[Rfam]
RNA: Purine riboswitch aptamer
Organism: Cohnella sp. CIP 111063
RNA sequence: AGCAUGUGAUGUUCAUCCAUUCGUAUAUCCUCGGCGAUAUGGGCCGGGGGUCUCUACCAGGAGCCUUAAAUUCCUGACUACGAAGGAUGUGGGAUACCCA
Numbered sequence: 001a002g003c004a005u006g007u008g009a010u011g012u013u014c015a016u017c018c019a020u021u022c023g024u025a026u027a028u029c030c031u032c033g034g035c036g037a038u039a040u041g042g043g044c045c046g047g048g049g050g051u052c053u054c055u056a057c058c059a060g061g062a063g064c065c066u067u068a069a070a071u072u073c074c075u076g077a078c079u080a081c082g083a084a085g086g087a088u089g090u091g092g093g094a095u096a097c098c099c100a
Stems, first nucleotide, its partner, number of pairs: 018086001020084006029049007058076006